[Rfam]
RNA sequence: CCGUGCUAGACGGGGAGGUAGCGGUGCCCUGUAACUCGCAAUCCGCUGCAGCGAGGUUGAAUUCCUGUCCGAGGUUAUGCGUUGUAAGGUUUGGCGUUCGUGAAAAGUGUUGACGGUCGGGUCCUCCGCAAUGGACGCCUGUGAACCUGGUCAGGUCCGGAAGGAAGCAGCCAUAAGCAGGUUAGUUCAUGUGCCGGGGGAGCGCCUGACUCGAGCUGGGAUCGAAAGUGUCGCUUGGACCGCAUGUAUCGGAGGCAGGUGCACGG
Numbered sequence: 001c002c003g004u005g006c007u008a009g010a011c012g013g014g015g016a017g018g019u020a021g022c023g024g025u026g027c028c029c030u031g032u033a034a035c036u037c038g039c040a041a042u043c044c045g046c047u048g049c050a051g052c053g054a055g056g057u058u059g060a061a062u063u064c065c066u067g068u069c070c071g072a073g074g075u076u077a078u079g080c081g082u083u084g085u086a087a088g089g090u091u092u093g094g095c096g097u098u099c100g101u102g103a104a105a106a107g108u109g110u111u112g113a114c115g116g117u118c119g120g121g122u123c124c125u126c127c128g129c130a131a132u133g134g135a136c137g138c139c140u141g142u143g144a145a146c147c148u149g150g151u152c153a154g155g156u157c158c159g160g161a162a163g164g165a166a167g168c169a170g171c172c173a174u175a176a177g178c179a180g181g182u183u184a185g186u187u188c189a190u191g192u193g194c195c196g197g198g199g200g201a202g203c204g205c206c207u208g209a210c211u212c213g214a215g216c217u218g219g220g221a222u223c224g225a226a227a228g229u230g231u232c233g234c235u236u237g238g239a240c241c242g243c244a245u246g247u248a249u250c251g252g253a254g255g256c257a258g259g260u261g262c263a264c265g266g
Base pairs, nucleotide, nucleotide: 001266002265003264004263005262006261009058010057011056012030013029014028015027017025019023035055036054037053038052039051064259065258066257067256068255069254073250074249075248079243080242081241083239085237086236087235088234092233093232096229097228098227101224106217107216108215115211116210117209118208119207120206121205122204123200124199125198126197127196128195129191130190132189133188134187135186136185137182138181139180140179141178142177148173149172150171151170156165157164158163

Source information
The record is a 266-nucleotide sequence from Paenibacillus darwinianus, which matches "Bacterial large signal recognition particle RNA" in Rfam. On this family, see Rosenblad et al., Nucleic Acids Res 2003: "SRPDB: Signal Recognition Particle Database". The family is grouped with related families in Rfam's "SRP clan". Rfam describes the family as follows. The signal recognition particle (SRP) is a universally conserved ribonucleoprotein involved in the co-translational targeting of proteins to membranes. Its family is annotated with signal recognition particle, plasma membrane targeting and SRP-dependent cotranslational protein targeting to membrane, signal sequence recognition in the Gene Ontology.